[Rfam]
RNA sequence: GAUCAAGUGAUGAGCAAUUAAAUGCUCCAAUGCUAUGAUUGGAGUUAUUCUCCUAUGAUUCCCAAGUUUGAAGUCUGAUGAUC
Numbered sequence: 001g002a003u004c005a006a007g008u009g010a011u012g013a014g015c016a017a018u019u020a021a022a023u024g025c026u027c028c029a030a031u032g033c034u035a036u037g038a039u040u041g042g043a044g045u046u047a048u049u050c051u052c053c054u055a056u057g058a059u060u061c062c063c064a065a066g067u068u069u070g071a072a073g074u075c076u077g078a079u080g081a082u083c
Base pairs, nucleotide, nucleotide: 001082003081004080005079041053042052043051044050
A member of the RNA family "Small nucleolar RNA Z199" from Zea mays, 83 nucleotides long. It scores 56 bits against the family's covariance model. By type it is a C/D-box small nucleolar RNA. Rfam's curators write: snoZ199 is a C/D box small nucleolar RNA, which acts as a methylation guide RNA for sites on 18S and 25S rRNA. Rice snoZ199 is reported to be homologous to Arabidopsis snoR13. The base pairs follow the family's consensus structure, which was predicted with PFOLD. The source organism's lineage runs through Eukaryota, Tracheophyta, Euphyllophyta, Petrosaviidae and Zea.